Rfam assigns this 169-nucleotide sequence from Sorghum bicolor to the family "MIR6224 microRNA precursor family". Rfam's curators put it in the seed alignment. Pairs were carried over by alignment from the consensus structure, which was predicted with RNAalifold. Gene Ontology terms of the family: RISC complex and miRNA-mediated post-transcriptional gene silencing.

RNA sequence: CUCUCUCCGUCCUAAUAUAUAAGGCGCAAUCACUUUUUAUUUAUAUCCCAUAAUAUAAUAGCUCUCUCUCAUACAUCAAUACAGUAGUACUAGUAUUGAGAGAGAAUUAAAUAUGAUCUUGAUUUUUGAACCAAAGGUAGUUAAGCCUUAUAUACUAGGACGGAGGGAG
Numbered sequence: 001c002u003c004u005c006u007c008c009g010u011c012c013u014a015a016u017a018u019a020u021a022a023g024g025c026g027c028a029a030u031c032a033c034u035u036u037u038u039a040u041u042u043a044u045a046u047c048c049c050a051u052a053a054u055a056u057a058a059u060a061g062c063u064c065u066c067u068c069u070c071a072u073a074c075a076u077c078a079a080u081a082c083a084g085u086a087g088u089a090c091u092a093g094u095a096u097u098g099a100g101a102g103a104g105a106a107u108u109a110a111a112u113a114u115g116a117u118c119u120u121g122a123u124u125u126u127u128g129a130a131c132c133a134a135a136g137g138u139a140g141u142u143a144a145g146c147c148u149u150a151u152a153u154a155c156u157a158g159g160a161c162g163g164a165g166g167g168a169g
Stems, first nucleotide, its partner, number of pairs: 001169014016154010028142003032138006040130004049121002064104005070098002075094002078091001080089003